[Rfam]
RNA sequence: GAGAGGUAGUGAACGGCUGACCGUGAGGAGGAAAGUCCCCCCACCGUAAAAAGGCGGACUCCCGCAAGGGAGUAUGCCGAGAGGCAUGGCAACGGCACAGAAACGAUACCCGCAUGGGGAAAUGCGAUGAAGCAAAUGCAGAGGUCACCCAUGCGGGAUGAAACGGCCGUCCCCGCUGGUGCAAGCGUAUGCGCUUAGAUUAAUGCCGUUUUGAACAGAAGGGGGCUUACUACUACCUCUC
Numbered sequence: 001g002a003g004a005g006g007u008a009g010u011g012a013a014c015g016g017c018u019g020a021c022c023g024u025g026a027g028g029a030g031g032a033a034a035g036u037c038c039c040c041c042c043a044c045c046g047u048a049a050a051a052a053g054g055c056g057g058a059c060u061c062c063c064g065c066a067a068g069g070g071a072g073u074a075u076g077c078c079g080a081g082a083g084g085c086a087u088g089g090c091a092a093c094g095g096c097a098c099a100g101a102a103a104c105g106a107u108a109c110c111c112g113c114a115u116g117g118g119g120a121a122a123u124g125c126g127a128u129g130a131a132g133c134a135a136a137u138g139c140a141g142a143g144g145u146c147a148c149c150c151a152u153g154c155g156g157g158a159u160g161a162a163a164c165g166g167c168c169g170u171c172c173c174c175g176c177u178g179g180u181g182c183a184a185g186c187g188u189a190u191g192c193g194c195u196u197a198g199a200u201u202a203a204u205g206c207c208g209u210u211u212u213g214a215a216c217a218g219a220a221g222g223g224g225g226c227u228u229a230c231u232a233c234u235a236c237c238u239c240u241c
Stems, first nucleotide, its partner, number of pairs: 001241003005237005011230001012210006021028002033228003037225005042181004053177005058073005074087005088172002093169004109157010132139002185192002
Background
A member of the RNA family "Archaeal RNase P" from Archaeoglobus sulfaticallidus, 241 nucleotides long. About the family: Ribonuclease P (RNase P) is a ubiquitous endoribonuclease, found in archaea, bacteria and eukarya as well as chloroplasts and mitochondria. Its best characterised activity is the generation of mature 5'-ends of tRNAs by cleaving the 5'-leader elements of precursor-tRNAs. Cellular RNase Ps are ribonucleoproteins. RNA from bacterial RNase Ps retains its catalytic activity in the absence of the protein subunit, i.e. it is a ribozyme. Isolated eukaryotic and archaeal RNase P RNA has not been shown to retain its catalytic function, but is still essential for the catalytic activity of the holoenzyme. Although the archaeal and eukaryotic holoenzymes have a much greater protein content than the bacterial ones, the RNA cores from all the three lineages are homologous -- helices corresponding to P1, P2, P3, P4, and P10/11 are common to all cellular RNase P RNAs. Yet, there is considerable sequence variation, particularly among the eukaryotic RNAs. The literature on the family includes a 1998 paper in Annu Rev Biochem by Frank and Pace, "Ribonuclease P: unity and diversity in a tRNA processing ribozyme". Rfam links the family to the GO terms ribonuclease P activity, multimeric ribonuclease P complex and tRNA processing. The family is grouped with related families in Rfam's "RNaseP clan". It scores 200 bits against the family's covariance model.